[Rfam]
RNA sequence: CGGACGGUGUACUCCCAGAUGGCGUCCGCGUCGGUCAGCGCCUGGUCCCCCAGGUAGGCGCCGUCGGCGAGGACACCGAGGGACUCGUCGUCGCCGUACGGGCCCGUGCCGAUCUUCUCGACCCUGCCGUGUGCCAGCAGGUACACCUCGUCGGCCGGACUGCCGAAGGAGGCGAGCGCCUCGCCCGCGGCGAGUUCGCGCUGCUGGCAGCGGCGGGCCAGUUCGGCGAGGACCUCCUCGUCCUCGUACGACCGCAGAGCGGGCAGUUCGCCCAGCUCCGCGGGGAUGACCUCGACGCGGUCGCCGGUCUUCACGAAGGUGACGCGGCCGUCCCCCACGGCGUACGUCAGGCGGCGGUUCACCCGGUACGUGCCGCCCUGCACGUUCACCCACGGAAGCAUGCGCAGCAGCCAGCGCGAGCUGAUCUCCUGCAUCUGGGGUGCGGACUUGGUAGUGGUGGCCAGGUUCCGCGCGGCGGCCGGGCCGAGGCUCUGCUGCGGCUUGCCCU
Numbered sequence: 001c002g003g004a005c006g007g008u009g010u011a012c013u014c015c016c017a018g019a020u021g022g023c024g025u026c027c028g029c030g031u032c033g034g035u036c037a038g039c040g041c042c043u044g045g046u047c048c049c050c051c052a053g054g055u056a057g058g059c060g061c062c063g064u065c066g067g068c069g070a071g072g073a074c075a076c077c078g079a080g081g082g083a084c085u086c087g088u089c090g091u092c093g094c095c096g097u098a099c100g101g102g103c104c105c106g107u108g109c110c111g112a113u114c115u116u117c118u119c120g121a122c123c124c125u126g127c128c129g130u131g132u133g134c135c136a137g138c139a140g141g142u143a144c145a146c147c148u149c150g151u152c153g154g155c156c157g158g159a160c161u162g163c164c165g166a167a168g169g170a171g172g173c174g175a176g177c178g179c180c181u182c183g184c185c186c187g188c189g190g191c192g193a194g195u196u197c198g199c200g201c202u203g204c205u206g207g208c209a210g211c212g213g214c215g216g217g218c219c220a221g222u223u224c225g226g227c228g229a230g231g232a233c234c235u236c237c238u239c240g241u242c243c244u245c246g247u248a249c250g251a252c253c254g255c256a257g258a259g260c261g262g263g264c265a266g267u268u269c270g271c272c273c274a275g276c277u278c279c280g281c282g283g284g285g286a287u288g289a290c291c292u293c294g295a296c297g298c299g300g301u302c303g304c305c306g307g308u309c310u311u312c313a314c315g316a317a318g319g320u321g322a323c324g325c326g327g328c329c330g331u332c333c334c335c336c337a338c339g340g341c342g343u344a345c346g347u348c349a350g351g352c353g354g355c356g357g358u359u360c361a362c363c364c365g366g367u368a369c370g371u372g373c374c375g376c377c378c379u380g381c382a383c384g385u386u387c388a389c390c391c392a393c394g395g396a397a398g399c400a401u402g403c404g405c406a407g408c409a410g411c412c413a414g415c416g417c418g419a420g421c422u423g424a425u426c427u428c429c430u431g432c433a434u435c436u437g438g439g440g441u442g443c444g445g446a447c448u449u450g451g452u453a454g455u456g457g458u459g460g461c462c463a464g465g466u467u468c469c470g471c472g473c474g475g476c477g478g479c480c481g482g483g484c485c486g487a488g489g490c491u492c493u494g495c496u497g498c499g500g501c502u503u504g505c506c507c508u
Stems, first nucleotide, its partner, number of pairs: 006390004011385002016380001018328001021325001025322002029318001031316002035313001037311002040308003045305001047303001050300002054233002059228005065111004077102001080099001082097001086093001118221001120219001122217002127212001130209001132206002135203003141197001143196001149192002156187003160183001161178002235295002240290003244286002249283001252280001254278001256277002259271003329342004351379001353377005360372003391431002394428002397425001399423002403418003407415001437476001440473001442471005447465006477507002480504003484500003487496002

The record is a 508-nucleotide RNA, which matches "Saccharopolyspora sRNA 350" in Rfam.
For this family Rfam cites "Prediction and characterization of small non-coding RNAs related to secondary metabolites in Saccharopolyspora erythraea" (Liu et al., PLoS One, 2013).
The match comes from Rfam's covariance-model search (150 bits).
The base pairs follow the family's consensus structure, which was predicted with RNAfold.